[Rfam]
RNA sequence: CCAGGGAACAGCCUCACGUGAUGAUCCUUCUCUCCCUGAUGGCUCCGAUGGUGAUGGACAUCAACCCAAAGCCUCUGAGAAGUUGACUGAGGAGGCUGUUUCCUG
Numbered sequence: 001c002c003a004g005g006g007a008a009c010a011g012c013c014u015c016a017c018g019u020g021a022u023g024a025u026c027c028u029u030c031u032c033u034c035c036c037u038g039a040u041g042g043c044u045c046c047g048a049u050g051g052u053g054a055u056g057g058a059c060a061u062c063a064a065c066c067c068a069a070a071g072c073c074u075c076u077g078a079g080a081a082g083u084u085g086a087c088u089g090a091g092g093a094g095g096c097u098g099u100u101u102c103c104u105g
Base pairs, nucleotide, nucleotide: 007100008099009098010097011096012095013094014093015092
The family of this 105-nucleotide RNA sequence from Gallus gallus is "Small nucleolar RNA SNORD125". A reference for the family is Yang et al. (2006), "snoSeeker: an advanced computational package for screening of guide and orphan snoRNA genes in the human genome", Nucleic Acids Res. The family's RNA type in Rfam is C/D-box small nucleolar RNA. Gene Ontology terms of the family: nucleolus and RNA processing. Rfam 15.1 lists 526 matches to the family in 498 species. The sequence is in the family's curated seed alignment.